[Rfam]
RNA sequence: AGAAAGUGCCUUUCAGGCAUCCUCUCCUAAGACUCAUGGGCCGGCCUUUUCGAAGGUCGGCCUUUUUUUUCGCCUCG
Dot-bracket structure: .......((((...))))....................(((((((((......)))))))))...............
Numbered sequence: 001a002g003a004a005a006g007u008g009c010c011u012u013u014c015a016g017g018c019a020u021c022c023u024c025u026c027c028u029a030a031g032a033c034u035c036a037u038g039g040g041c042c043g044g045c046c047u048u049u050u051c052g053a054a055g056g057u058c059g060g061c062c063u064u065u066u067u068u069u070u071c072g073c074c075u076c077g
Stems, first nucleotide, its partner, number of pairs: 008018004039062009